[Rfam]
The family of this 115-nucleotide RNA from Pieris macdunnoughi is "U5 spliceosomal RNA". A search with the family's covariance model found it, with a score of 98 bits. The base pairs follow the family's consensus structure, which is taken from published work. The literature on the family includes a 1990 paper in Nucleic Acids Res by Thomas et al., "The spliceosomal snRNAs of Caenorhabditis elegans". About the family: U5 RNA is a component of both types of known spliceosome. The precise function of this molecule is unknown, though it is known that the 5' loop is required for splice site selection and p220 binding, and that both the 3' stem-loop and the Sm site are important for Sm protein binding and cap methylation.

RNA sequence: UUACUCUGGUUUCCCUUCAAAACGUAUAAAUCUUUCGCCUUUUACUAAAGAUUUCCGUGGAGGGGGACACUCAAAUGAGUCUAACUCAAUUUUUGACGCUCUGCUUCGGUAGAGC
Numbered sequence: 001u002u003a004c005u006c007u008g009g010u011u012u013c014c015c016u017u018c019a020a021a022a023c024g025u026a027u028a029a030a031u032c033u034u035u036c037g038c039c040u041u042u043u044a045c046u047a048a049a050g051a052u053u054u055c056c057g058u059g060g061a062g063g064g065g066g067a068c069a070c071u072c073a074a075a076u077g078a079g080u081c082u083a084a085c086u087c088a089a090u091u092u093u094u095g096a097c098g099c100u101c102u103g104c105u106u107c108g109g110u111a112g113a114g115c
Base pairs, nucleotide, nucleotide: 003080004079005078006077009068010067011066012065013064014063015062016061017060018059019058028054029053030052031051032050033049034048035047098115099114100113101112102111103110